Leucine operon leader: a 142-nucleotide sequence from Providencia sneebia. Pairs were carried over by alignment from the consensus structure, which is taken from published work. The source organism's lineage runs through Bacteria, Pseudomonadati, Pseudomonadota, Gammaproteobacteria and Providencia sneebia. Rfam classes the family as a cis-regulatory leader. At least 6 amino acid operons are known to be regulated by attenuation.

[Rfam]
RNA sequence: UAAGAGACCGUAACAAUGAUUAAAUUCAUCCGCCUACUAAGCCUACUACUACUCGCAUCCAAUAUGCGCGGUAUGCUUAUGGACGGAAGAUAACGAGUUACAGUCCAGAAGAUAAAAACCCGCGCUAGCCGCGGGUUUUUUU
Numbered sequence: 001u002a003a004g005a006g007a008c009c010g011u012a013a014c015a016a017u018g019a020u021u022a023a024a025u026u027c028a029u030c031c032g033c034c035u036a037c038u039a040a041g042c043c044u045a046c047u048a049c050u051a052c053u054c055g056c057a058u059c060c061a062a063u064a065u066g067c068g069c070g071g072u073a074u075g076c077u078u079a080u081g082g083a084c085g086g087a088a089g090a091u092a093a094c095g096a097g098u099u100a101c102a103g104u105c106c107a108g109a110a111g112a113u114a115a116a117a118a119c120c121c122g123c124g125c126u127a128g129c130c131g132c133g134g135g136u137u138u139u140u141u142u
Stems, first nucleotide, its partner, number of pairs: 006105003010101001012099003017095002026086002029083004047073004054068004115139010
Dot-bracket structure: .....(((.(.(((..((.......((.((((..............((((...((((.......)))).))))......)))).)).......)).))).).))).........((((((((((.....))))))))))...